[Rfam]
RNA sequence: AGAUGUGUUCGUAGAGUAGCGAACAGGGUAAAAUAAAGAAAUACUCAAAGAGA
Numbered sequence: 001a002g003a004u005g006u007g008u009u010c011g012u013a014g015a016g017u018a019g020c021g022a023a024c025a026g027g028g029u030a031a032a033a034u035a036a037a038g039a040a041a042u043a044c045u046c047a048a049a050g051a052g053a
Stems, first nucleotide, its partner, number of pairs: 006025006014046004

Shown here is a 53-nucleotide RNA sequence, a member of the family "6A RNA". Pairs were carried over by alignment from the consensus structure, which is taken from published work. The sequence is in the family's curated seed alignment.